This 140-nucleotide sequence from Tupaia belangeri belongs to the Rfam family "Small nucleolar RNA SNORD97".
Rfam links the family to the GO terms nucleolus and RNA processing.
On this family, see Vitali et al., Nucleic Acids Res 2003: "Identification of 13 novel human modification guide RNAs".
Rfam classes the family as a C/D-box small nucleolar RNA.
[Rfam]
RNA sequence: UUGCCCGAUGAUUAUAAAAAGACGCGUUAUUAAGAGGACUUAUGCUGGAAUUCUUUACUUUUUCUUUCUUUUCUGUACUACUGUUUCUUUCUUUGGAUAUCCAGCGUCCUAUGAGCGAAGAUUAUGAGAUAUGAGGGCAA
Dot-bracket structure: ((((((............................((((.((......)).))))................................................................................))))))